Rfam assigns this 268-nucleotide RNA sequence from Neogale vison to the family "bip internal ribosome entry site (IRES)". Gene Ontology term of the family: ribosome binding. This family represents the bip internal ribosome entry site (IRES). BiP protein expression has been found to be significantly enhanced by the heat shock response due to IRES-dependent translation. It is thought that this translational mechanism is essential for the survival of cells under stress. The organism belongs to Neogale, within Eukaryota. On this family, see Kim and Jang, Biochem Biophys Res Commun 2002: "Continuous heat shock enhances translational initiation directed by internal ribosomal entry site". The base pairs follow the family's consensus structure, which was predicted with PFOLD.

Nucleotides: 268
Base pairs, nucleotide, nucleotide: 004257005256006255007254008253009252016163017162018161033121034120035119036118037117061109062108066104067103068102069101167179168178169177170176171175
Number, partner (000 for none) and nucleotide at each position: 001000c002000g003000c004257u005256g006255g007254c008253u009252g010000a011000g012000a013000c014000a015000u016163c017162a018161c019000a020000g021000g022000c023000u024000c025000a026000u027000c028000a029000a030000c031000u032000g033121c034120g035119g036118g037117g038000a039000u040000u041000u042000u043000u044000g045000u046000g047000a048000g049000u050000c051000u052000g053000a054000g055000a056000g057000g058000u059000a060000a061109g062108c063000c064000c065000c066104g067103c068102g069101g070000c071000c072000u073000g074000u075000c076000u077000u078000u079000c080000c081000g082000g083000a084000c085000c086000u087000g088000c089000c090000c091000u092000u093000c094000g095000c096000c097000u098000u099000g100000u101069c102068u103067g104066c105000u106000u107000u108062g109061c110000c111000u112000g113000c114000u115000g116000a117037c118036c119035c120034c121033g122000g123000g124000c125000c126000c127000u128000g129000u130000a131000c132000c133000u134000u135000c136000a137000g138000a139000u140000c141000a142000g143000u144000a145000a146000c147000u148000u149000c150000c151000g152000u153000g154000c155000g156000c157000u158000c159000g160000g161018g162017u163016g164000c165000u166000g167179u168178g169177g170176c171175c172000u173000g174000u175171g176170g177169c178168u179167g180000g181000a182000u183000u184000g185000c186000c187000u188000g189000u190000g191000a192000c193000g194000u195000c196000c197000u198000g199000c200000c201000a202000g203000c204000c205000u206000g207000c208000u209000g210000a211000c212000c213000g214000a215000c216000u217000g218000g219000c220000c221000u222000a223000c224000g225000g226000c227000g228000c229000c230000g231000g232000c233000a234000a235000c236000a237000u238000g239000a240000a241000g242000c243000u244000g245000u246000c247000c248000c249000u250000g251000g252009u253008g254007g255006c256005u257004g258000c259000g260000g261000u262000g263000c264000u265000g266000c267000u268000g